[Rfam]
RNA sequence: UGGUCAUUACCAAGGCUGCUAGGAUGUUGCCGUUUCUGGUGAGCUGUGGACAUGACCGUAAAGUAAGCCCAUCAGACUCUUGAAUUGCCACAUGAUGUGGUAGUAAGUCUGCUGGGAAUAAAG
Number, nucleotide and partner (000 for none) at each position: 001u000002g000003g056004u055005c054006a053007u052008u000009a000010c049011c048012a047013a000014g000015g000016c000017u000018g000019c000020u000021a000022g000023g000024a000025u000026g044027u043028u042029g000030c000031c000032g000033u000034u000035u000036c000037u000038g000039g000040u000041g000042a028043g027044c026045u000046g000047u012048g011049g010050a000051c000052a007053u006054g005055a004056c003057c000058g000059u000060a000061a000062a000063g000064u000065a000066a000067g000068c116069c115070c114071a113072u000073c000074a000075g109076a108077c107078u106079c000080u000081u000082g000083a000084a000085u000086u102087g101088c100089c000090a000091c000092a000093u000094g000095a000096u000097g000098u000099g000100g088101u087102a086103g000104u000105a000106a078107g077108u076109c075110u000111g000112c000113u071114g070115g069116g068117a000118a000119u000120a000121a000122a000123g000
Small nucleolar RNA SNORA32: a 123-nucleotide sequence from Ceuthmochares aereus.
NCBI's taxonomy places the organism under Eukaryota, Metazoa, Eumetazoa, Chordata, Ceuthmochares.
The family's RNA type in Rfam is H/ACA-box small nucleolar RNA.
From the family's description: ACA32 is a member of the H/ACA class of snoRNA that guide the sites of modification of uridines to pseudouridines.
Rfam 15.1 lists 615 matches to the family in 234 species.